Rfam assigns this 143-nucleotide RNA from Magnetococcus marinus to the family "Group II catalytic intron D1-D4-7".
The organism belongs to Magnetococcus marinus, within Bacteria.
The base pairs follow the family's consensus structure.
A reference for the family is Bonen and Vogel (2001), "The ins and outs of group II introns", Trends Genet.
It is one of the family's seed sequences.
RNA sequence: CCCGAUAUUCUGCUAUCGGUAACCUACCUGGACAUGCAUGGUGAGCAAUCACAUGUGUGAAGCUCCAGGGACAACGGUACUGUCACCUGCCACCAAGCCGUGAGGUAUGAUGUGGCAACACUAAAACGGACAGUGUUUUACGC
Numbered sequence: 001c002c003c004g005a006u007a008u009u010c011u012g013c014u015a016u017c018g019g020u021a022a023c024c025u026a027c028c029u030g031g032a033c034a035u036g037c038a039u040g041g042u043g044a045g046c047a048a049u050c051a052c053a054u055g056u057g058u059g060a061a062g063c064u065c066c067a068g069g070g071a072c073a074a075c076g077g078u079a080c081u082g083u084c085a086c087c088u089g090c091c092a093c094c095a096a097g098c099c100g101u102g103a104g105g106u107a108u109g110a111u112g113u114g115g116c117a118a119c120a121c122u123a124a125a126a127c128g129g130a131c132a133g134u135g136u137u138u139u140a141c142g143c
Base pairs, nucleotide, nucleotide: 002019003018004017005016006015007014028068029067030066031065032064033059034058035057036056037055038054039053040052042051043050044049084089090115091114092113093112098105099104117137118136119135120134121133122132